[Rfam]
RNA sequence: CUCUUAUCCAGAGAGGCAGAGGGACCGGCCCGACGAAGCCUCGGCAACCAUCAGGAUGGUAGAUUGCAGAUUGUAGAUUGGAAUGUUCCCAUCUACUUUCUGAAAUUUGAAAUCUGAACGGUGCCAAAUCCGGCAGCACAAGACUGGAAGAUGGGAG
Numbered sequence: 001c002u003c004u005u006a007u008c009c010a011g012a013g014a015g016g017c018a019g020a021g022g023g024a025c026c027g028g029c030c031c032g033a034c035g036a037a038g039c040c041u042c043g044g045c046a047a048c049c050a051u052c053a054g055g056a057u058g059g060u061a062g063a064u065u066g067c068a069g070a071u072u073g074u075a076g077a078u079u080g081g082a083a084u085g086u087u088c089c090c091a092u093c094u095a096c097u098u099u100c101u102g103a104a105a106u107u108u109g110a111a112a113u114c115u116g117a118a119c120g121g122u123g124c125c126a127a128a129u130c131c132g133g134c135a136g137c138a139c140a141a142g143a144c145u146g147g148a149a150g151a152u153g154g155g156a157g
Base pairs, nucleotide, nucleotide: 001157002156003155004154005153006152007151008150013042014041015040016039017038021031022030023029025133026132027131028130043125044124045123046122048121049120051117052116053115054114129149134146135145136144

The family of this 157-nucleotide RNA sequence from a Roseiflexaceae bacterium is "SAM riboswitch aptamer (S box leader)". The match comes from Rfam's covariance-model search (75 bits).